[Rfam]
RNA sequence: GGAGAGGUGGCAGAGUGGUCGAAUGUACCUGACUCGAAAUCAGGCGUAGGGUGUCCCCCUACCGUGGGUUCGAAUCCCACCCUCUCCG
Number, nucleotide and partner (000 for none) at each position: 001g087002g086003a085004g084005a083006g082007g081008u000009g000010g026011c025012a024013g000014a000015g000016u000017g000018g000019u000020c000021g000022a000023a000024u012025g011026u010027a000028c044029c043030u042031g041032a040033c000034u000035c000036g000037a000038a000039a000040u032041c031042a030043g029044g028045c000046g000047u000048a000049g000050g000051g000052u000053g000054u000055c000056c000057c000058c000059c000060u000061a000062c000063c000064g080065u079066g078067g077068g076069u000070u000071c000072g000073a000074a000075u000076c068077c067078c066079a065080c064081c007082c006083u005084c004085u003086c002087c001088g000
tRNA: an 88-nucleotide sequence from Zemynaea arenosa. A search with the family's covariance model found it, with a score of 61 bits. The family's consensus secondary structure is taken from published work.